Overview
Shown here is a 415-nucleotide part of an RNA from Fusarium longipes, a member of the family "Eukaryotic large subunit ribosomal RNA". The source organism's lineage runs through Eukaryota, leotiomyceta, sordariomyceta, Hypocreomycetidae and Fusarium sambucinum species complex.
[Rfam]
RNA sequence: UGACCUCGGAUCAGGUAGGAAUACCCGCUGAACUUAAGCAUAUCAAUAAGCGGAGGAAAAGAAACCAACAGGGAUUGCCCUAGUAACGGCGAGUGAAGCGGCAACAGCUCAAAUUUGAAAUCUGGCUCUCGGGCCCGAGUUGUAAUUUGUAGAGGAUACUUUUGAUGCGGUGCCUUCCGAGUUCCCUGGAACGGGACGCCAUAGAGGGUGAGAGCCCCGUCUGGUUGGAUGCCAAAUCUCUGUAAAGUUCCUUCGACGAGUCGAGUAGUUUGGGAAUGCUGCUCUAAAUGGGAGGUAUAUGUCUUCUAAAGCUAAAUACCGGCCAGAGACCGAUAGCGCACAAGUAGAGUGAUCGAAAGAUGAAAAGCACUUUGAAAAGAGAGUUAAAAAGUACGUGAAAUUGUUGAAAGGGAAG
Numbered sequence: 001u002g003a004c005c006u007c008g009g010a011u012c013a014g015g016u017a018g019g020a021a022u023a024c025c026c027g028c029u030g031a032a033c034u035u036a037a038g039c040a041u042a043u044c045a046a047u048a049a050g051c052g053g054a055g056g057a058a059a060a061g062a063a064a065c066c067a068a069c070a071g072g073g074a075u076u077g078c079c080c081u082a083g084u085a086a087c088g089g090c091g092a093g094u095g096a097a098g099c100g101g102c103a104a105c106a107g108c109u110c111a112a113a114u115u116u117g118a119a120a121u122c123u124g125g126c127u128c129u130c131g132g133g134c135c136c137g138a139g140u141u142g143u144a145a146u147u148u149g150u151a152g153a154g155g156a157u158a159c160u161u162u163u164g165a166u167g168c169g170g171u172g173c174c175u176u177c178c179g180a181g182u183u184c185c186c187u188g189g190a191a192c193g194g195g196a197c198g199c200c201a202u203a204g205a206g207g208g209u210g211a212g213a214g215c216c217c218c219g220u221c222u223g224g225u226u227g228g229a230u231g232c233c234a235a236a237u238c239u240c241u242g243u244a245a246a247g248u249u250c251c252u253u254c255g256a257c258g259a260g261u262c263g264a265g266u267a268g269u270u271u272g273g274g275a276a277u278g279c280u281g282c283u284c285u286a287a288a289u290g291g292g293a294g295g296u297a298u299a300u301g302u303c304u305u306c307u308a309a310a311g312c313u314a315a316a317u318a319c320c321g322g323c324c325a326g327a328g329a330c331c332g333a334u335a336g337c338g339c340a341c342a343a344g345u346a347g348a349g350u351g352a353u354c355g356a357a358a359g360a361u362g363a364a365a366a367g368c369a370c371u372u373u374g375a376a377a378a379g380a381g382a383g384u385u386a387a388a389a390a391g392u393a394c395g396u397g398a399a400a401u402u403g404u405u406g407a408a409a410g411g412g413a414a415g
Stems, first nucleotide, its partner, number of pairs: 024055001025053005035042002065072002076103004086094002106313004112147004118141002121138002124135004152254002154251003159247004164238003169233002173228002177224002181197001183196004200204001207217002263284007290307005347354002370381004